[Rfam]
The record is a 150-nucleotide RNA sequence from Thermosynechococcus vestitus, which matches "Group II catalytic intron D1-D4-7" in Rfam. Rfam's curators write: Group II introns are found in rRNA, tRNA and mRNA of organelles in fungi, plants and protists, and also in mRNA in bacteria. It is one of the family's seed sequences. Its family is annotated with Group II intron splicing in the Gene Ontology.
RNA sequence: CCAGCUGUUCCCCCAACUGUAGCCUAGGGAGGCAUGCGUGGUUGGCAACGACCAGGUAUGAACCCCUCCCGACAAUGUAGCCCGAACCGCAAGGUUAAAGCUGAAUCCGUCAGGAGGAAGCAACUUCACCAGUGUCAGGUGAUAGGGAGC
Numbered sequence: 001c002c003a004g005c006u007g008u009u010c011c012c013c014c015a016a017c018u019g020u021a022g023c024c025u026a027g028g029g030a031g032g033c034a035u036g037c038g039u040g041g042u043u044g045g046c047a048a049c050g051a052c053c054a055g056g057u058a059u060g061a062a063c064c065c066c067u068c069c070c071g072a073c074a075a076u077g078u079a080g081c082c083c084g085a086a087c088c089g090c091a092a093g094g095u096u097a098a099a100g101c102u103g104a105a106u107c108c109g110u111c112a113g114g115a116g117g118a119a120g121c122a123a124c125u126u127c128a129c130c131a132g133u134g135u136c137a138g139g140u141g142a143u144a145g146g147g148a149g150c
Stems, first nucleotide, its partner, number of pairs: 002019003006015002028069005033060005039054006085096003100121003107114002126142005
NCBI's taxonomy places the organism under Bacteria, Cyanobacteriota, Cyanophyceae, Thermosynechococcus, Thermosynechococcus vestitus.